[Rfam]
RNA sequence: UCUGGGACAGAAUGAGAGCGAGGUAUUGAGUUCCUACGUGAAAUCAUUUGUAGGAACUUCAUACCGUGCUCUUGUCACGCCCUU
Numbered sequence: 001u002c003u004g005g006g007a008c009a010g011a012a013u014g015a016g017a018g019c020g021a022g023g024u025a026u027u028g029a030g031u032u033c034c035u036a037c038g039u040g041a042a043a044u045c046a047u048u049u050g051u052a053g054g055a056a057c058u059u060c061a062u063a064c065c066g067u068g069c070u071c072u073u074g075u076c077a078c079g080c081c082c083u084u
Stems, first nucleotide, its partner, number of pairs: 012075003017070004022065005028059010
Dot-bracket structure: ...........(((..((((.(((((.((((((((((............)))))))))).))))).))))..))).........
This 84-nucleotide RNA from Amphibalanus amphitrite belongs to the Rfam family "mir-276 microRNA precursor family". For this family Rfam cites "Identification of microRNAs expressed in two mosquito vectors, Aedes albopictus and Culex quinquefasciatus" (Skalsky et al., BMC Genomics, 2010). It scores 68 bits against the family's covariance model.